[Rfam]
RNA: U5 spliceosomal RNA
RNA sequence: AUUGUCAGAACUUUCCACAAAGCGUAUUAAUCUUUCGCCUUUUACUAAAGAUUUCCGUGUGGAUAGUUCACUCACUCAUGAGAACUUUGCAAUUUUUCUAGCCUUUCUUAGUGAGAGGCU
Dot-bracket structure: ..(.((..((((.((((((.........(((((((...........)))))))....)))))).))))...........)).)................(((((((.......)))))))